[Rfam]
RNA sequence: GUUGCUUCUUCUGGUGAACUCUCCCUUAUUGUCCGUGGGGAAUGUUCUUGUUUCCGAAGCAUAUAUAAAUAAUUUCUUCUCGAAUAACCAGUUUUAAACAGCGUGGUGUAAUUUUCUUUAAUGUACUACACCAUGCUACCUGUCUGCUGGUACAUUC
Numbered sequence: 001g002u003u004g005c006u007u008c009u010u011c012u013g014g015u016g017a018a019c020u021c022u023c024c025c026u027u028a029u030u031g032u033c034c035g036u037g038g039g040g041a042a043u044g045u046u047c048u049u050g051u052u053u054c055c056g057a058a059g060c061a062u063a064u065a066u067a068a069a070u071a072a073u074u075u076c077u078u079c080u081c082g083a084a085u086a087a088c089c090a091g092u093u094u095u096a097a098a099c100a101g102c103g104u105g106g107u108g109u110a111a112u113u114u115u116c117u118u119u120a121a122u123g124u125a126c127u128a129c130a131c132c133a134u135g136c137u138a139c140c141u142g143u144c145u146g147c148u149g150g151u152a153c154a155u156u157c
Base pairs, nucleotide, nucleotide: 003061004060005059006058007057008056016047017046018045019044020042022040023039024038087151088150089149090148091147092146100137101136102135104133105132106131107130108129